[Rfam]
RNA sequence: GGAGUGGUCUCUGGAGAAUCUCAGAAAAUGAGUGCCGAAGGUGCAAUGCACAGUUUGCUGUGCAGAAUCUCUCAGGCAAAAGGACAGAGUCAGAAGA
Numbered sequence: 001g002g003a004g005u006g007g008u009c010u011c012u013g014g015a016g017a018a019u020c021u022c023a024g025a026a027a028a029u030g031a032g033u034g035c036c037g038a039a040g041g042u043g044c045a046a047u048g049c050a051c052a053g054u055u056u057g058c059u060g061u062g063c064a065g066a067a068u069c070u071c072u073c074a075g076g077c078a079a080a081a082g083g084a085c086a087g088a089g090u091c092a093g094a095a096g097a
Base pairs, nucleotide, nucleotide: 007091009089010088011087012086013085020032021031022030023029034077035076036075037073038072041071043069047064048063049062050061051060052059053058
Rfam assigns this 97-nucleotide RNA sequence from Blautia sp. OF03-15BH to the family "Glycine riboswitch aptamer".
The match comes from Rfam's covariance-model search (65 bits).
Lineage of the source: Bacteria > Bacillota > Clostridia > Lachnospiraceae > Blautia.